[Rfam]
RNA sequence: GCCGAGAGGGCGAGGAAUAAAAGACCUUCGGGGAAUAACUCCAGCCGACUUUGGACGGUUUACGAACCUCUUGGCACCCUAUU
Numbered sequence: 001g002c003c004g005a006g007a008g009g010g011c012g013a014g015g016a017a018u019a020a021a022a023g024a025c026c027u028u029c030g031g032g033g034a035a036u037a038a039c040u041c042c043a044g045c046c047g048a049c050u051u052u053g054g055a056c057g058g059u060u061u062a063c064g065a066a067c068c069u070c071u072u073g074g075c076a077c078c079c080u081a082u083u
Base pairs, nucleotide, nucleotide: 001075002074003073004072005071006070007069008068009067014041015040016036025032026031043060044059045058046057047056
Shown here is an 83-nucleotide RNA sequence from Haemophilus influenzae, a member of the family "sRNA-Xcc1". For this family Rfam cites "sRNA-Xcc1, an integron-encoded transposon- and plasmid-transferred trans-acting sRNA, is under the positive control of the key virulence regulators HrpG and HrpX of Xanthomonas campestris pathovar campestris" (Chen et al., RNA Biol, 2011). The family has 74 seed sequences and 421 matches in Rfam 15.1. Rfam's curators put it in the seed alignment. The organism belongs to Haemophilus influenzae, within Bacteria. The family's RNA type in Rfam is small RNA.